[Rfam]
RNA sequence: AUGCACCCUAACUGUAAGUCGCUUUGGAUAAAAGCGUCUGCUAAAUGGCAUAUC
Numbered sequence: 001a002u003g004c005a006c007c008c009u010a011a012c013u014g015u016a017a018g019u020c021g022c023u024u025u026g027g028a029u030a031a032a033a034g035c036g037u038c039u040g041c042u043a044a045a046u047g048g049c050a051u052a053u054c
Stems, first nucleotide, its partner, number of pairs: 013043001014041003020036006
RNA: UnaL2 LINE 3' element